[Rfam]
A member of the RNA family "Clostridiales-1 RNA" from Eubacterium ventriosum, 169 nucleotides long. Rfam 15.1 lists 1,172 matches to the family in 137 species.
RNA sequence: UAACUCACCAACCCCCGGAACUUCCAGGACACCUGUGCUUGCACAAAGGUGUCUUGGAAGUUUCGGGGGUGCCUUAUUAUGAGCAUAAAAGGGCGACGAAGUCGCGCGAUAUGCGAAUAAUGAGGACAGAUUGCGGGAACGCGAAGCGCGUAGCAAUCUGAGUGAGUUA
Numbered sequence: 001u002a003a004c005u006c007a008c009c010a011a012c013c014c015c016c017g018g019a020a021c022u023u024c025c026a027g028g029a030c031a032c033c034u035g036u037g038c039u040u041g042c043a044c045a046a047a048g049g050u051g052u053c054u055u056g057g058a059a060g061u062u063u064c065g066g067g068g069g070u071g072c073c074u075u076a077u078u079a080u081g082a083g084c085a086u087a088a089a090a091g092g093g094c095g096a097c098g099a100a101g102u103c104g105c106g107c108g109a110u111a112u113g114c115g116a117a118u119a120a121u122g123a124g125g126a127c128a129g130a131u132u133g134c135g136g137g138a139a140c141g142c143g144a145a146g147c148g149c150g151u152a153g154c155a156a157u158c159u160g161a162g163u164g165a166g167u168u169a
Stems, first nucleotide, its partner, number of pairs: 001169007012069004018063016034045004073124008083114004091107001093105005128159007140148003